[Rfam]
RNA sequence: UGUGAAGGGAUGAAAAAAAUCAUUCGGAUUCCCAAUGAUAAUACAUGAUAUUACAACCAGCUACUUCUGAUCACA
Numbered sequence: 001u002g003u004g005a006a007g008g009g010a011u012g013a014a015a016a017a018a019a020u021c022a023u024u025c026g027g028a029u030u031c032c033c034a035a036u037g038a039u040a041a042u043a044c045a046u047g048a049u050a051u052u053a054c055a056a057c058c059a060g061c062u063a064c065u066u067c068u069g070a071u072c073a074c075a
Stems, first nucleotide, its partner, number of pairs: 001075005
Dot-bracket structure: (((((.................................................................)))))
The family of this 75-nucleotide RNA sequence from Cucurbita maxima is "Small nucleolar RNA R12". The family's consensus secondary structure was predicted with PFOLD. snoR12 is a C/D box small nucleolar RNA, which acts as a methylation guide for 25S ribosomal RNA in plants. snoR12 has been alternatively named snoZ44 in Arabidopsis and snoZ131 in rice. The literature on the family includes a 2003 paper in Nucleic Acids Res by Chen et al., "The high diversity of snoRNAs in plants: identification and comparative study of 120 snoRNA genes from Oryza sativa". It is annotated as a C/D-box small nucleolar RNA.